The family of this 64-nucleotide sequence from Patiria miniata is "Selenocysteine insertion sequence 1". Lineage of the source: Eukaryota > Opisthokonta > Eleutherozoa > Asterozoa > Patiria. A search with the family's covariance model found it, with a score of 42 bits. The incorporation of selenocysteine into a protein sequence is directed by an in-frame UGA codon (usually a stop codon) within the coding region of the mRNA. Selenoprotein mRNAs contain a conserved secondary structure in the 3' UTR that is required for the distinction of UGA stop from UGA selenocysteine. The selenocysteine insertion sequence (SECIS) is around 60 nt in length and adopts a hairpin structure which is sufficiently well-defined and conserved to act as a computational screen for selenoprotein genes. By type it is a cis-regulatory element.

[Rfam]
RNA sequence: GACACUUUUAUGAAGGCAUUGUGCUAAACCGGAACGGGGCACAGUGCCUGAUGUUCAGUGUGUC
Dot-bracket structure: (((((.........((((((((((....(((...))).))))))))))...........)))))